[Rfam]
RNA: T-box leader
RNA sequence: UCAAAUGUGAUGAAGAGGACAAGUAGAUCCGGAAACACCGUUCAGAGAACUGCCGGUUGGUGCGAGGCAGCGGGAUAUCCGAAUCAAAAAAUCGCCUCAGAGCUGGCCCCCGAAAUAAUAGUAGACGGGCCCGGGAUUCUACCGUUACAAAGAAGCAUCGUUGUUGGACGAUGGCUAAGAGGGCGUUUUAUAUAAACGUCAAUCAGGGUGGUAACGCGGAGUAACUCCGUCCCUUAU
Numbered sequence: 001u002c003a004a005a006u007g008u009g010a011u012g013a014a015g016a017g018g019a020c021a022a023g024u025a026g027a028u029c030c031g032g033a034a035a036c037a038c039c040g041u042u043c044a045g046a047g048a049a050c051u052g053c054c055g056g057u058u059g060g061u062g063c064g065a066g067g068c069a070g071c072g073g074g075a076u077a078u079c080c081g082a083a084u085c086a087a088a089a090a091a092u093c094g095c096c097u098c099a100g101a102g103c104u105g106g107c108c109c110c111c112g113a114a115a116u117a118a119u120a121g122u123a124g125a126c127g128g129g130c131c132c133g134g135g136a137u138u139c140u141a142c143c144g145u146u147a148c149a150a151a152g153a154a155g156c157a158u159c160g161u162u163g164u165u166g167g168a169c170g171a172u173g174g175c176u177a178a179g180a181g182g183g184c185g186u187u188u189u190a191u192a193u194a195a196a197c198g199u200c201a202a203u204c205a206g207g208g209u210g211g212u213a214a215c216g217c218g219g220a221g222u223a224a225c226u227c228c229g230u231c232c233c234u235u236a237u
Stems, first nucleotide, its partner, number of pairs: 007103002015098004026085003030081002038074002050070005106130004111124001132144003182200007205234004216230005